[Rfam]
RNA sequence: AUUCAGUAUUUCAGUUUUAGAAUUCCUACGCUUUACCGUUGCCAAGCUGUUGGGCAAAGCGUUUGGAUUCUAAAACGAAAUAUCU
Numbered sequence: 001a002u003u004c005a006g007u008a009u010u011u012c013a014g015u016u017u018u019a020g021a022a023u024u025c026c027u028a029c030g031c032u033u034u035a036c037c038g039u040u041g042c043c044a045a046g047c048u049g050u051u052g053g054g055c056a057a058a059g060c061g062u063u064u065g066g067a068u069u070c071u072a073a074a075a076c077g078a079a080a081u082a083u084c085u
Base pairs, nucleotide, nucleotide: 010079011078012077014076015075016074017073018072019071020070021069023067024066025065028062029061030060031059032058033057034056036054037053
A member of the RNA family "mir-927 microRNA precursor family" from Helicoverpa armigera, 85 nucleotides long. A reference for the family is Stark et al. (2007), "Systematic discovery and characterization of fly microRNAs using 12 Drosophila genomes", Genome Res.